[Rfam]
RNA sequence: ACAAUGUUCCGCUGUCAUACUUAACAGAGACAUGAGCAUUUG
Numbered sequence: 001a002c003a004a005u006g007u008u009c010c011g012c013u014g015u016c017a018u019a020c021u022u023a024a025c026a027g028a029g030a031c032a033u034g035a036g037c038a039u040u041u042g
Stems, first nucleotide, its partner, number of pairs: 003040007013032002015029001018026001
The record is a 42-nucleotide RNA sequence from Alteribacillus iranensis, which matches "Ribosomal protein L19 leader" in Rfam. Gene Ontology term of the family: regulation of gene expression. The family's RNA type in Rfam is cis-regulatory leader. Taxonomically the source falls in Alteribacillus (Bacteria, Bacillati, Bacillota, Bacilli). A reference for the family is Zengel and Lindahl (1994), "Diverse mechanisms for regulating ribosomal protein synthesis in Escherichia coli", Prog Nucleic Acid Res Mol Biol. It scores 41 bits against the family's covariance model. This family is a putative r-protein leader autoregulatory structure found in B. subtilis and other low-GC Gram-positive bacteria. It is located in the 5' untranslated regions of mRNAs encoding ribosomal protein L19 (rplS).